[Rfam]
A member of the RNA family "Connexin-43 internal ribosome entry site (IRES)" from Halcyon senegalensis, 195 nucleotides long. The literature on the family includes a 1999 paper in FEBS Lett by Schiavi et al., "Connexin43 mRNA contains a functional internal ribosome entry site". Lineage of the source: Eukaryota > Deuterostomia > Saurischia > Telluraves > Halcyon. Rfam describes the family as follows. This family represents the connexin-43 internal ribosome entry site (IRES) which allows cap independent translation during conditions such as heat shock and stress. The base pairs follow the family's consensus structure, which is taken from published work.
RNA sequence: AACUUUUACGAGGUAUCAGCACUUUUCGUUCAUUACUGGGGAAGGAAGGAUGAAAAAUACAAAACAGCCGUAGACUUUUAAAAGUUUAAAUAGACAGGUCUGAGUGCCUGAACGUGCUCUUCCAUUUUACGUUAACCCUCCAAAGAAGUUUUCUGAUCCAGUUUCACUGCUGAUCAGCAAGGGUAAGUUGAAAGU
Numbered sequence: 001a002a003c004u005u006u007u008a009c010g011a012g013g014u015a016u017c018a019g020c021a022c023u024u025u026u027c028g029u030u031c032a033u034u035a036c037u038g039g040g041g042a043a044g045g046a047a048g049g050a051u052g053a054a055a056a057a058u059a060c061a062a063a064a065c066a067g068c069c070g071u072a073g074a075c076u077u078u079u080a081a082a083a084g085u086u087u088a089a090a091u092a093g094a095c096a097g098g099u100c101u102g103a104g105u106g107c108c109u110g111a112a113c114g115u116g117c118u119c120u121u122c123c124a125u126u127u128u129a130c131g132u133u134a135a136c137c138c139u140c141c142a143a144a145g146a147a148g149u150u151u152u153c154u155g156a157u158c159c160a161g162u163u164u165c166a167c168u169g170c171u172g173a174u175c176a177g178c179a180a181g182g183g184u185a186a187g188u189u190g191a192a193a194g195u
Base pairs, nucleotide, nucleotide: 003019004018007015008014009013029147030146031145033143034142038138039137040136041133042132044130049126050125051124052123056121057120072101073100074099075098076097077096102117104115105114106113152191153190155189156188159187162183163182164181167177168176169175